RNA: Plastid-rpl16 group II-D1 intron
RNA sequence: AAGAGCUUUGAGCCAAUAAGGAAUAACAAGAUUGAUUCAAGAACCAA
Numbered sequence: 001a002a003g004a005g006c007u008u009u010g011a012g013c014c015a016a017u018a019a020g021g022a023a024u025a026a027c028a029a030g031a032u033u034g035a036u037u038c039a040a041g042a043a044c045c046a047a
Base pairs, nucleotide, nucleotide: 007041008040010038011037012036014034015033016032017031